This 104-nucleotide sequence from Drosophila grimshawi belongs to the Rfam family "mir-286 microRNA precursor family". Rfam 15.1 lists 37 matches to the family in 31 species. For this family Rfam cites "Direct sequencing and expression analysis of a large number of miRNAs in Aedes aegypti and a multispecies survey of novel mosquito miRNAs" (Li et al., BMC Genomics, 2009). NCBI's taxonomy places the organism under Eukaryota, Allotriocarida, Ephydroidea, Drosophilini, Hawaiian Drosophila.
[Rfam]
RNA sequence: UUAAAAUUAAAUGGCGAUUGUCGGUAUGGUCGCUUUUGAACCUAAACUCUAUAUACAAUAUAUAUAAAGUGACUAGACCGAACACUCGUGCUAUAAUUUUAAAA
Numbered sequence: 001u002u003a004a005a006a007u008u009a010a011a012u013g014g015c016g017a018u019u020g021u022c023g024g025u026a027u028g029g030u031c032g033c034u035u036u037u038g039a040a041c042c043u044a045a046a047c048u049c050u051a052u053a054u055a056c057a058a059u060a061u062a063u064a065u066a067a068a069g070u071g072a073c074u075a076g077a078c079c080g081a082a083c084a085c086u087c088g089u090g091c092u093a094u095a096a097u098u099u100u101a102a103a104a
Stems, first nucleotide, its partner, number of pairs: 011094006019084003022080003027075005033069004